[Rfam]
Nucleotides: 354
Stems, first nucleotide, its partner, number of pairs: 002349009011339001012319007020037001022035005042337003046334005051224004058256004063220005068082005083097001084095004098215002103213002106208001120154002122150004128144002162180006181204001182202004187196003228276004238267006247261005283302008
Number, partner (000 for none) and nucleotide at each position: 001000u002349g003348a004347g005346u006345u007344g008343g009342c010341c011339a012319g013318a014317c015316u016315g017314u018313c019000g020037c021000g022035g023034c024033g025032c026031a027000g028000g029000a030000a031026u032025g033024c034023g035022c036000g037020g038000a039000g040000g041000a042337a043336a044335g045000u046334c047333c048332g049331g050330g051224c052223u053222c054221c055000g056000u057000a058256g059255g060254g061253c062000a063220g064219g065218g066217u067216g068082c069081c070080a071079g072078g073000u074000a075000a076000c077000g078072c079071c080070u081069g082068g083097g084095c085094g086093g087092c088000g089000u090000g091000a092087g093086c094085c095084g096000a097083c098215g099214g100000a101000a102000a103213g104212u105000g106208c107000a108000a109000c110000a111000g112000a113000a114000a115000a116000c117000a118000u119000a120154c121153c122150g123149c124148c125147g126000a127000a128144c129143g130000g131000u132000g133000u134000c135000g136000c137000a138000a139000g140000a141000c142000a143129u144128g145000c146000g147125u148124g149123g150122u151000a152000a153121g154120g155000g156000c157000g158000a159000a160000c161000c162180g163179g164178u165177g166176c167175g168000g169000u170000a171000a172000g173000a174000g175167c176166g177165c178164a179163c180162c181204g182202c183201a184200u185199c186000c187196g188195u189194g190000g191000c192000a193000a194189c195188a196187c197000g198000c199185g200184a201183u202182g203000g204181c205000a206000u207000g208106g209000a210000a211000a212104a213103c214099c215098c216067c217066a218065c219064c220063c221054g222053g223052a224051g225000c226000a227000a228276g229275g230274c231273c232000a233000a234000a235000u236000a237000g238267g239266g240265a241264a242263a243262c244000g245000a246000u247261c248260a249259c250258g251257c252000g253061g254060c255059c256058c257251g258250c259249g260248u261247g262243g263242u264241u265240u266239c267238c268000g269000g270000g271000u272000a273231g274230g275229c276228u277000g278000c279000u280000u281000g282000a283302g284301g285300u286299c287298a288297u289296c290295g291000g292000u293000g294000a295290c296289g297288a298287u299286g300285a301284u302283c303000c304000c305000a306000g307000a308000u309000g310000a311000a312000u313018g314017a315016c316015a317014g318013u319012u320000c321000u322000c323000g324000a325000c326000a327000g328000a329000a330050c331049c332048c333047g334046g335044c336043u337042u338000a339011u340000c341010g342009g343008c344007c345006a346005a347004c348003u349002c350000u351000c352000c353000c354000a
Overview: Rfam assigns this 354-nucleotide RNA sequence from Halothiobacillus diazotrophicus to the family "Bacterial RNase P class A". A search with the family's covariance model found it, with a score of 320 bits. Taxonomically the source falls in Halothiobacillus (Bacteria, Pseudomonadota, Gammaproteobacteria, Halothiobacillaceae). By type it is a ribozyme.